[Rfam]
RNA: skipping-rope RNA
RNA sequence: GUUAUUCGAGGUGGAAGAUUUCGUCCCCGUCCACACGCUGAUGGCUUGACAAAGUGAAACCUUGAGAGAUGCAGGAGAAUGGGACGCCUGCCGAAUAAC
Numbered sequence: 001g002u003u004a005u006u007c008g009a010g011g012u013g014g015a016a017g018a019u020u021u022c023g024u025c026c027c028c029g030u031c032c033a034c035a036c037g038c039u040g041a042u043g044g045c046u047u048g049a050c051a052a053a054g055u056g057a058a059a060c061c062u063u064g065a066g067a068g069a070u071g072c073a074g075g076a077g078a079a080u081g082g083g084a085c086g087c088c089u090g091c092c093g094a095a096u097a098a099c
Base pairs, nucleotide, nucleotide: 001099002098003097004096005095006094007093008092011034012033013032014031015030024084025083026082027081036066037045038044039043071091072090073089074088075087